[Rfam]
RNA sequence: UCUUCAUUUCAUGCACUCUCUCAGCGGUCAGAGAUGCGAGAGAGCACGCGAAAUGAGGAGA
Numbered sequence: 001u002c003u004u005c006a007u008u009u010c011a012u013g014c015a016c017u018c019u020c021u022c023a024g025c026g027g028u029c030a031g032a033g034a035u036g037c038g039a040g041a042g043a044g045c046a047c048g049c050g051a052a053a054u055g056a057g058g059a060g061a
Base pairs, nucleotide, nucleotide: 001059002058003057004056005055006054007053010050012048013047016044017043019041020040021039022038
A member of the RNA family "mir-8364 microRNA precursor family" from Pristionchus pacificus, 61 nucleotides long.
Gene Ontology terms of the family: RISC complex and miRNA-mediated post-transcriptional gene silencing.
Lineage of the source: Eukaryota > Eumetazoa > Protostomia > Rhabditida > Pristionchus.
Pairs were carried over by alignment from the consensus structure, which was predicted with RNAalifold.
The family has 13 seed sequences and 3,320 matches in Rfam 15.1.